[Rfam]
RNA sequence: CGGUGAACCUCGGGGUGUGUUUUGACACUGAGAUUUGAGCAGUUGCCGCUGGGCCUGCUUAAGAACCCGCGAACCUGAUCCGGAUGAUACCGGCGUAGGAAAGGUCACUACUUCCCCU
Numbered sequence: 001c002g003g004u005g006a007a008c009c010u011c012g013g014g015g016u017g018u019g020u021u022u023u024g025a026c027a028c029u030g031a032g033a034u035u036u037g038a039g040c041a042g043u044u045g046c047c048g049c050u051g052g053g054c055c056u057g058c059u060u061a062a063g064a065a066c067c068c069g070c071g072a073a074c075c076u077g078a079u080c081c082g083g084a085u086g087a088u089a090c091c092g093g094c095g096u097a098g099g100a101a102a103g104g105u106c107a108c109u110a111c112u113u114c115c116c117c118u
Stems, first nucleotide, its partner, number of pairs: 007105004011069004016063001017028004035062008074099004080093004